Shown here is a 144-nucleotide RNA sequence from Lachnospiraceae bacterium XPB1003, a member of the family "Ribosomal protein L10 leader". Pairs were carried over by alignment from the consensus structure, which was predicted with CMfinder. It scores 66 bits against the family's covariance model. It is annotated as a cis-regulatory leader.
[Rfam]
RNA sequence: UUGUCUGUUAAAGACAUGCCGAAGACAGCAGGCGGGGAUUCCCGUAACGCGCGAAAGCAGGCCUGCCGAGGAGAAGUCAGAAGAGUUUAUUAACUUUGAAUGAUCCCGACUCCGGCAAUGCCGGAGUCGUUUUUGUUUAAUGAC
Numbered sequence: 001u002u003g004u005c006u007g008u009u010a011a012a013g014a015c016a017u018g019c020c021g022a023a024g025a026c027a028g029c030a031g032g033c034g035g036g037g038a039u040u041c042c043c044g045u046a047a048c049g050c051g052c053g054a055a056a057g058c059a060g061g062c063c064u065g066c067c068g069a070g071g072a073g074a075a076g077u078c079a080g081a082a083g084a085g086u087u088u089a090u091u092a093a094c095u096u097u098g099a100a101u102g103a104u105c106c107c108g109a110c111u112c113c114g115g116c117a118a119u120g121c122c123g124g125a126g127u128c129g130u131u132u133u134u135g136u137u138u139a140a141u142g143a144c
Stems, first nucleotide, its partner, number of pairs: 028066006034043003107129010